[Rfam]
RNA sequence: GACUUAAUGCUAAUUGUGAUAGGGGUUUUGAGUUCUGAUGAGCUCCUACAUAUUAGCAUUAGCUC
Numbered sequence: 001g002a003c004u005u006a007a008u009g010c011u012a013a014u015u016g017u018g019a020u021a022g023g024g025g026u027u028u029u030g031a032g033u034u035c036u037g038a039u040g041a042g043c044u045c046c047u048a049c050a051u052a053u054u055a056g057c058a059u060u061a062g063c064u065c
Base pairs, nucleotide, nucleotide: 004062005061006060007059008058009057010056011055012054013053014052020048021047022046023045025043026042027041